[Rfam]
RNA: TPP riboswitch aptamer (THI element)
RNA sequence: GGAAAUUCCGAGGGGUGCACCGAACGGUGCUGAGACGGCGGUGAGCCGGACCCUUGAACCUGAUCCGGGUCAUACCGGCGUAGGAACGGAACAAGGGCCAUCU
Numbered sequence: 001g002g003a004a005a006u007u008c009c010g011a012g013g014g015g016u017g018c019a020c021c022g023a024a025c026g027g028u029g030c031u032g033a034g035a036c037g038g039c040g041g042u043g044a045g046c047c048g049g050a051c052c053c054u055u056g057a058a059c060c061u062g063a064u065c066c067g068g069g070u071c072a073u074a075c076c077g078g079c080g081u082a083g084g085a086a087c088g089g090a091a092c093a094a095g096g097g098c099c100a101u102c103u
Stems, first nucleotide, its partner, number of pairs: 006091005011054004016048001017030005037047003059084004065078004